[Rfam]
RNA sequence: UGCUCCCUGGGAUACAUGUUCUAAUCAGUAAUGUCCCUGUGCCGAUAAUUUUGACUUAAGGGUGAAUGUUUGGCUGACAUUGUGCAAGCUCGGCUCGUAUCGAGAAGCCUUAGGAAGUUAUCGUUUACCCGCCUUGAACCUACGGUUCAAGGGCUAAGCUGAUAACGGUAUCUUGGGGAGCAA
Numbered sequence: 001u002g003c004u005c006c007c008u009g010g011g012a013u014a015c016a017u018g019u020u021c022u023a024a025u026c027a028g029u030a031a032u033g034u035c036c037c038u039g040u041g042c043c044g045a046u047a048a049u050u051u052u053g054a055c056u057u058a059a060g061g062g063u064g065a066a067u068g069u070u071u072g073g074c075u076g077a078c079a080u081u082g083u084g085c086a087a088g089c090u091c092g093g094c095u096c097g098u099a100u101c102g103a104g105a106a107g108c109c110u111u112a113g114g115a116a117g118u119u120a121u122c123g124u125u126u127a128c129c130c131g132c133c134u135u136g137a138a139c140c141u142a143c144g145g146u147u148c149a150a151g152g153g154c155u156a157a158g159c160u161g162a163u164a165a166c167g168g169u170a171u172c173u174u175g176g177g178g179a180g181c182a183a
Base pairs, nucleotide, nucleotide: 002181003180004179005178006177007176008175009174010173011172012171013170014169015168017167018166019165033154034153035152036151038149039148041146042145043144060130061129062128064126065125066124067123068122071120072119073118074117075116078114084108085107089104090103091102092101093100
Dot-bracket structure: .((((((((((((((.(((.............((((.((.(((................(((.(((((..(((((..(.....((...(((((......)))))..)).....).))))).))))).))).............))).)).))))..........)))))))))))))))))..
A member of the RNA family "6S / SsrS RNA" from Parashewanella spongiae, 183 nucleotides long. Rfam classes the family as a non-coding RNA gene. For this family Rfam cites "6S RNA regulates E. coli RNA polymerase activity" (Wassarman and Storz, Cell, 2000). The match comes from Rfam's covariance-model search (108 bits).